[Rfam]
Background: The family of this 139-nucleotide RNA from Xenopus laevis is "U8 small nucleolar RNA". The family has 55 seed sequences and 1,597 matches in Rfam 15.1. The family's RNA type in Rfam is C/D-box small nucleolar RNA. Its family is annotated with RNA processing and nucleolus in the Gene Ontology. The match comes from Rfam's covariance-model search (77 bits). A reference for the family is Peculis (1997), "The sequence of the 5' end of the U8 small nucleolar RNA is critical for 5.8S and 28S rRNA maturation", Mol Cell Biol.
RNA sequence: UUGUCAGUGAGGUCAAUCCUUACCUGUUCCUCCUCCGGGAGAAACAGCACGUGAUGAAUGGAGGAGACUGAGUUGCUGAUUACUCUGUACUCCGGUCCUGAUUGGUGCGACAACACUAACCAGUCAGGCUCAUUCUGAU
Numbered sequence: 001u002u003g004u005c006a007g008u009g010a011g012g013u014c015a016a017u018c019c020u021u022a023c024c025u026g027u028u029c030c031u032c033c034u035c036c037g038g039g040a041g042a043a044a045c046a047g048c049a050c051g052u053g054a055u056g057a058a059u060g061g062a063g064g065a066g067a068c069u070g071a072g073u074u075g076c077u078g079a080u081u082a083c084u085c086u087g088u089a090c091u092c093c094g095g096u097c098c099u100g101a102u103u104g105g106u107g108c109g110a111c112a113a114c115a116c117u118a119a120c121c122a123g124u125c126a127g128g129c130u131c132a133u134u135c136u137g138a139u
Base pairs, nucleotide, nucleotide: 024047025046026045028043030041031040032039033038070092071091074089075088076087077082097128098127099126100125101124102123103122104121105120